[Rfam]
RNA sequence: UCACUGGACGUUUUAGCUAUUGAACUGUUUUGUCACUGUCUGACAGAAAACAAUUUGUUCUUUGACAGAGAGUGACAAAACCAAAACCGUUCAAUAGUUAAAGCGUCGAGUAAU
Numbered sequence: 001u002c003a004c005u006g007g008a009c010g011u012u013u014u015a016g017c018u019a020u021u022g023a024a025c026u027g028u029u030u031u032g033u034c035a036c037u038g039u040c041u042g043a044c045a046g047a048a049a050a051c052a053a054u055u056u057g058u059u060c061u062u063u064g065a066c067a068g069a070g071a072g073u074g075a076c077a078a079a080a081c082c083a084a085a086a087c088c089g090u091u092c093a094a095u096a097g098u099u100a101a102a103g104c105g106u107c108g109a110g111u112a113a114u
Base pairs, nucleotide, nucleotide: 001113003111004110005109011103012102013101014100015099016098017097018096019095020094021093022092023091024090025089027087028086029069030068031067032066033065034064035063049059050058051057052056

The record is a 114-nucleotide sequence from Plutella xylostella, which matches "mir-8517 microRNA precursor family" in Rfam.
A search with the family's covariance model found it, with a score of 85 bits.
Lineage of the source: Eukaryota > Arthropoda > Pterygota > Ditrysia > Plutella.
The family's consensus secondary structure was predicted with RNAalifold.
Rfam links the family to the GO terms RISC complex and miRNA-mediated post-transcriptional gene silencing.